[Rfam]
The family of this 177-nucleotide sequence from Clostridium sp. CAG:7 is "Lysine riboswitch aptamer". The match comes from Rfam's covariance-model search (96 bits).
RNA sequence: AAACAGAGUAGAGGUUGCGCUGAUCAAAAGUAACCGGCCGGAUGUGACAGGCACAGAAGAAGGUCUGGUGAAAGGGAAAAGCGCCGAAGAAAAGAGGAAACCUGAAAGAGUCUUUUCUGGGCACAGGGUUAAGAACUUUGUGACUGUCAUCCGGGUGGAUGGAGAGCUACCGAAAGA
Numbered sequence: 001a002a003a004c005a006g007a008g009u010a011g012a013g014g015u016u017g018c019g020c021u022g023a024u025c026a027a028a029a030g031u032a033a034c035c036g037g038c039c040g041g042a043u044g045u046g047a048c049a050g051g052c053a054c055a056g057a058a059g060a061a062g063g064u065c066u067g068g069u070g071a072a073a074g075g076g077a078a079a080a081g082c083g084c085c086g087a088a089g090a091a092a093a094g095a096g097g098a099a100a101c102c103u104g105a106a107a108g109a110g111u112c113u114u115u116u117c118u119g120g121g122c123a124c125a126g127g128g129u130u131a132a133g134a135a136c137u138u139u140g141u142g143a144c145u146g147u148c149a150u151c152c153g154g155g156u157g158g159a160u161g162g163a164g165a166g167c168u169a170c171c172g173a174a175a176g177a
Base pairs, nucleotide, nucleotide: 008170009169010168011167017084018083019082020081021080024077025076033069034068035067036066037065038063039062088118089117090116091115092114093113094112095111119145120144122142123141124140125139126138127137128136129135147162148161149160150159151158152157
Taxonomically the source falls in Clostridium (Bacteria, Bacillati, Clostridia, Eubacteriales).